A member of the RNA family "Small nucleolar RNA snR57" from Blastobotrys ciferrii, 90 nucleotides long. The match comes from Rfam's covariance-model search (63 bits). It is annotated as a C/D-box small nucleolar RNA. Its family is annotated with RNA processing and nucleolus in the Gene Ontology.
RNA sequence: GGAUGGGAAUGAUUAUACAUUUUUGAUUAUUACUGAGGAUGUAUAUGCAGGACCAAAAAAUUAUAGGAAUUCUUCGUUGAUGACCCAUCC
Numbered sequence: 001g002g003a004u005g006g007g008a009a010u011g012a013u014u015a016u017a018c019a020u021u022u023u024u025g026a027u028u029a030u031u032a033c034u035g036a037g038g039a040u041g042u043a044u045a046u047g048c049a050g051g052a053c054c055a056a057a058a059a060a061u062u063a064u065a066g067g068a069a070u071u072c073u074u075c076g077u078u079g080a081u082g083a084c085c086c087a088u089c090c
Stems, first nucleotide, its partner, number of pairs: 001090004